A member of the RNA family "Ruegeria cis52 sRNA" from Rhodobacteraceae bacterium AsT-22, 181 nucleotides long.
The match comes from Rfam's covariance-model search (160 bits).
Taxonomically the source falls in Paracoccaceae (Bacteria, Pseudomonadota, Alphaproteobacteria, Rhodobacterales).
For this family Rfam cites "Experimental Identification of Small Non-Coding RNAs in the Model Marine Bacterium Ruegeria pomeroyi DSS-3" (Rivers et al., Front Microbiol, 2016).

[Rfam]
RNA sequence: UCCUGAGCGCGUGUUUCAUCACGAUGUUGCGGAACACCACGCCCUUGAGCCGGGCAGUGCGGAUAUAUUGCGCGGUCAUGACCUCGGCCAUCGAGGCGCGGGUCAUGCGGGCGAUAUAGCCCAUGCCGUAAAGCGCGAUGGUCAGCACCGGCAGGAAGAAAUUCUCGAAAUUGGCGCUUUC
Number, nucleotide and partner (000 for none) at each position: 001u000002c000003c000004u141005g000006a139007g000008c137009g136010c135011g134012u133013g000014u131015u130016u128017c000018a000019u000020c125021a124022c000023g000024a000025u000026g000027u000028u123029g122030c000031g120032g000033a000034a000035c000036a000037c000038c113039a000040c111041g000042c109043c000044c000045u000046u105047g104048a103049g000050c101051c100052g099053g000054g097055c075056a000057g073058u072059g071060c070061g069062g068063a000064u000065a000066u000067a000068u062069u061070g060071c059072g058073c057074g000075g055076u000077c000078a000079u000080g000081a000082c096083c095084u094085c093086g092087g000088c000089c000090a000091u000092c086093g085094a084095g083096g082097c054098g000099c052100g051101g050102g000103u048104c047105a046106u000107g000108c000109g042110g000111g040112c000113g038114a000115u000116a000117u000118a000119g000120c031121c000122c029123a028124u021125g020126c000127c000128g016129u000130a015131a014132a000133g012134c011135g010136c009137g008138a000139u006140g000141g004142u000143c000144a000145g181146c000147a179148c000149c176150g175151g000152c173153a172154g165155g164156a163157a162158g000159a000160a000161a000162u157163u156164c155165u154166c000167g000168a000169a000170a000171u000172u153173g152174g000175c150176g149177c000178u000179u147180u000181c145